[Rfam]
RNA sequence: CCCCCGCAACCAAUUUACAGGGUCCCAGUUUGGUAUGAAGCCCCGACAGAGCAAGCGGGGCUUUUUGCUAUCUGCCCUGUGAUGAAGAAUAUUAUCGUCACCAAAAACUGGGCUUUAGGCCCUUUUUUU
Numbered sequence: 001c002c003c004c005c006g007c008a009a010c011c012a013a014u015u016u017a018c019a020g021g022g023u024c025c026c027a028g029u030u031u032g033g034u035a036u037g038a039a040g041c042c043c044c045g046a047c048a049g050a051g052c053a054a055g056c057g058g059g060g061c062u063u064u065u066u067g068c069u070a071u072c073u074g075c076c077c078u079g080u081g082a083u084g085a086a087g088a089a090u091a092u093u094a095u096c097g098u099c100a101c102c103a104a105a106a107a108c109u110g111g112g113c114u115u116u117a118g119g120c121c122c123u124u125u126u127u128u129u
Base pairs, nucleotide, nucleotide: 037064038063039062040061041060042059043058044057045056110122111121112120113119
RNA: Gammaprotebacteria rimP leader